[Rfam]
Yersinia sRNA 224: a 107-nucleotide RNA from Prodigiosinella confusarubida. It scores 75 bits against the family's covariance model. Lineage of the source: Bacteria > Pseudomonadota > Gammaproteobacteria > Enterobacterales > Prodigiosinella. The literature on the family includes a 2015 paper in PLoS Genet by Nuss et al., "Transcriptomic profiling of Yersinia pseudotuberculosis reveals reprogramming of the Crp regulon by temperature and uncovers Crp as a master regulator of small RNAs". Rfam links the family to the GO term response to temperature stimulus. The pairing is the family consensus, mapped onto this sequence. By type it is a small RNA.

Nucleotides: 107
Stems, first nucleotide, its partner, number of pairs: 013107002016104002020028002030077002041066002045063003052056001081100008
Number, partner (000 for none) and nucleotide at each position: 001000g002000a003000g004000u005000u006000u007000g008000a009000u010000g011000a012000c013107a014106a015000c016104g017103u018000c019000u020028c021027u022000a023000u024000a025000g026000c027021g028020g029000c030077g031076a032000u033000a034000a035000u036000g037000a038000g039000a040000a041066g042065a043000u044000c045063g046062u047061a048000a049000a050000g051000a052056c053000g054000c055000u056052g057000c058000a059000a060000g061047u062046a063045c064000c065042u066041c067000c068000c069000u070000g071000u072000a073000a074000g075000c076031u077030c078000a079000a080000g081100c082099c083098g084097c085096g086095c087094c088093a089000u090000c091000c092000c093088u094087g095086g096085c097084g098083c099082g100081g101000a102000u103017g104016c105000u106014u107013u